[Rfam]
RNA sequence: CGCGGCCAUAUUGUCCUGUCACAGCAGUACUUGGAAGCUACUGCUGCGUCUGGACAAGCCGGCCGCG
Numbered sequence: 001c002g003c004g005g006c007c008a009u010a011u012u013g014u015c016c017u018g019u020c021a022c023a024g025c026a027g028u029a030c031u032u033g034g035a036a037g038c039u040a041c042u043g044c045u046g047c048g049u050c051u052g053g054a055c056a057a058g059c060c061g062g063c064c065g066c067g
Base pairs, nucleotide, nucleotide: 003065004064005063006062012056013055014054015053016052018050022046023045024044025043026042027041028040029039

The record is a 67-nucleotide sequence from Bombyx mori, which matches "mir-1000 microRNA precursor family" in Rfam. The source organism's lineage runs through Eukaryota, Pancrustacea, Neoptera, Panorpida and Bombyx. Gene Ontology terms of the family: negative regulation of glutamate secretion, neurotransmission, miRNA-mediated post-transcriptional gene silencing and RISC complex. Pairs were carried over by alignment from the consensus structure, which was predicted with RNAalifold. Rfam 15.1 lists 152 matches to the family in 150 species. It is one of the family's seed sequences.